Background
This 46-nucleotide RNA sequence from Pediococcus stilesii belongs to the Rfam family "PreQ1 (pre queuosine) riboswitch aptamer". The family has 43 seed sequences and 873 matches in Rfam 15.1. This family is a bacterial riboswitch that binds to the metabolite preQ1, an intermediate in the biosynthesis of the modified nucleoside queuosine from GTP. One example of this riboswitch is located in the leader of the Bacillus subtilis ykvJKLM (queCDEF) operon which encodes four genes necessary for queuosine production. PreQ1 binding to the riboswitch aptamer is thought to induce premature transcription termination within the leader to down-regulate expression of these genes. The pairing is the family consensus, mapped onto this sequence. Its family is annotated with queuosine biosynthetic process in the Gene Ontology. The organism belongs to Pediococcus, within Bacteria.

RNA sequence: AAUCUGGUGGUUCGCAAAAUCCCACCAUAAACAAAACUAAGGAGAA
Numbered sequence: 001a002a003u004c005u006g007g008u009g010g011u012u013c014g015c016a017a018a019a020u021c022c023c024a025c026c027a028u029a030a031a032c033a034a035a036a037c038u039a040a041g042g043a044g045a046a
Base pairs, nucleotide, nucleotide: 006026007025008024009023010022016038